RNA sequence: GUUUCAACUGGAGUUCUCCCAGAGCACUUCACUAGGAACAUUAUACUAUUUUUGCCCCACUGAAGUGUUCGGGUGAACUUCGGGUGUUAC
Numbered sequence: 001g002u003u004u005c006a007a008c009u010g011g012a013g014u015u016c017u018c019c020c021a022g023a024g025c026a027c028u029u030c031a032c033u034a035g036g037a038a039c040a041u042u043a044u045a046c047u048a049u050u051u052u053u054g055c056c057c058c059a060c061u062g063a064a065g066u067g068u069u070c071g072g073g074u075g076a077a078c079u080u081c082g083g084g085u086g087u088u089a090c
Stems, first nucleotide, its partner, number of pairs: 005086002008083002011080006018073003022070010033059001035057002
The record is a 90-nucleotide sequence from Sesamum indicum, which matches "mir-395 microRNA precursor family" in Rfam. mir-395 was identified in both Arabidopsis thaliana and Oryza sativa computationally and was later experimentally verified. mir-395 is thought to target mRNAs coding for ATP sulphurylases. The mature sequence is excised from the 3' arm of the hairpin. It scores 57 bits against the family's covariance model. Rfam links the family to the GO terms miRNA-mediated post-transcriptional gene silencing and RISC complex. The family's consensus secondary structure was predicted with PFOLD. The literature on the family includes a 2004 paper in Mol Cell by Jones-Rhoades and Bartel, "Computational Identification of Plant MicroRNAs and Their Targets, Including a Stress-Induced miRNA".